The record is a 57-nucleotide sequence from Asclepias nivea, which matches "Plastid-psbA-3 3UTR RNA" in Rfam. For this family Rfam cites "Retrograde signaling in plants: A critical review focusing on the GUN pathway and beyond" (Richter et al., Plant Commun, 2023). The source organism's lineage runs through Eukaryota, Tracheophyta, Asclepiadoideae, Asclepiadeae and Asclepias. The family's RNA type in Rfam is cis-regulatory element.
RNA sequence: AAAGGAGCAAUAUCACCUUCUUGUUGUAUCAAGAAGAUGAUUUUUGCUCCUUUAUUU
Numbered sequence: 001a002a003a004g005g006a007g008c009a010a011u012a013u014c015a016c017c018u019u020c021u022u023g024u025u026g027u028a029u030c031a032a033g034a035a036g037a038u039g040a041u042u043u044u045u046g047c048u049c050c051u052u053u054a055u056u057u
Base pairs, nucleotide, nucleotide: 001053002052003051004050005049006048007047008046009045010044012042014039018035019034020033021032022031023030